[Rfam]
This 408-nucleotide RNA sequence from Opitutus sp. GAS368 belongs to the Rfam family "Bacterial RNase P class A". Rfam links the family to the GO terms tRNA processing, ribonuclease P activity and dimeric ribonuclease P complex.

RNA sequence: UUUCGGAGCCAGAUCUUCGCUCCGCGUUCUUUGAACCAGGAGAGGAAAGUCCGGACACCACAGGGCGGGAUUCCCCGUGAAAACGGGGGCAGGGCGCUUCAAGGCGACCUGACGGAUAGUGUCACAGAGAAUAUACCGCCAACCGGGCAACCGGGAGGUAAGGGUGAAAAGGUGGGGUAAGAGCCCACCGCGCCGAAGGCAACGACGGCGGCAUGAAAAACCCAAUCCGGUGCAAGACUAAAUAGGGGACUCGGCGGCCCGUCGGACAGUCCCGGGUUAGUCGCACUCCAGGCGCCGGCGCAAGCCGUCAGUCUGGGGAGGCGCGCUUUCGGGCGCGCCUAGAGAAAUGAAGAUCACGGCGCCGUUCGCGGCGCCCGACAGAAUCCGGCUUACCGGCUGCGGAACUAG
Numbered sequence: 001u002u003u004c005g006g007a008g009c010c011a012g013a014u015c016u017u018c019g020c021u022c023c024g025c026g027u028u029c030u031u032u033g034a035a036c037c038a039g040g041a042g043a044g045g046a047a048a049g050u051c052c053g054g055a056c057a058c059c060a061c062a063g064g065g066c067g068g069g070a071u072u073c074c075c076c077g078u079g080a081a082a083a084c085g086g087g088g089g090c091a092g093g094g095c096g097c098u099u100c101a102a103g104g105c106g107a108c109c110u111g112a113c114g115g116a117u118a119g120u121g122u123c124a125c126a127g128a129g130a131a132u133a134u135a136c137c138g139c140c141a142a143c144c145g146g147g148c149a150a151c152c153g154g155g156a157g158g159u160a161a162g163g164g165u166g167a168a169a170a171g172g173u174g175g176g177g178u179a180a181g182a183g184c185c186c187a188c189c190g191c192g193c194c195g196a197a198g199g200c201a202a203c204g205a206c207g208g209c210g211g212c213a214u215g216a217a218a219a220a221c222c223c224a225a226u227c228c229g230g231u232g233c234a235a236g237a238c239u240a241a242a243u244a245g246g247g248g249a250c251u252c253g254g255c256g257g258c259c260c261g262u263c264g265g266a267c268a269g270u271c272c273c274g275g276g277u278u279a280g281u282c283g284c285a286c287u288c289c290a291g292g293c294g295c296c297g298g299c300g301c302a303a304g305c306c307g308u309c310a311g312u313c314u315g316g317g318g319a320g321g322c323g324c325g326c327u328u329u330c331g332g333g334c335g336c337g338c339c340u341a342g343a344g345a346a347a348u349g350a351a352g353a354u355c356a357c358g359g360c361g362c363c364g365u366u367c368g369c370g371g372c373g374c375c376c377g378a379c380a381g382a383a384u385c386c387g388g389c390u391u392a393c394c395g396g397c398u399g400c401g402g403a404a405c406u407a408g
Stems, first nucleotide, its partner, number of pairs: 001404005007398004012355007020042004026036003047391003051388005056232004063260004068228005073088005089113001090111004114223002119221002122216002136163002138159003143154004171189006190212001191210005198203001236282004246273005251265005
By type it is a ribozyme. It scores 224 bits against the family's covariance model. Pairs were carried over by alignment from the consensus structure, which is taken from published work.